[Rfam]
RNA sequence: UCUGGCGCUGAUGCCACACUUGCCCUCACUGAGAACGCUGUUCGAUAAUGAGCCUCACCAUGUGCGCAAAUGAGCUGAGCCAGG
Numbered sequence: 001u002c003u004g005g006c007g008c009u010g011a012u013g014c015c016a017c018a019c020u021u022g023c024c025c026u027c028a029c030u031g032a033g034a035a036c037g038c039u040g041u042u043c044g045a046u047a048a049u050g051a052g053c054c055u056c057a058c059c060a061u062g063u064g065c066g067c068a069a070a071u072g073a074g075c076u077g078a079g080c081c082a083g084g
Stems, first nucleotide, its partner, number of pairs: 001084006

This 84-nucleotide RNA sequence from Nyctibius bracteatus belongs to the Rfam family "Small nucleolar RNA SNORD103/SNORD85".
The organism belongs to Nyctibius, within Eukaryota.
Pairs were carried over by alignment from the consensus structure.
For this family Rfam cites "RNomics: an experimental approach that identifies 201 candidates for novel, small, non-messenger RNAs in mouse" (Huttenhofer et al., EMBO J, 2001).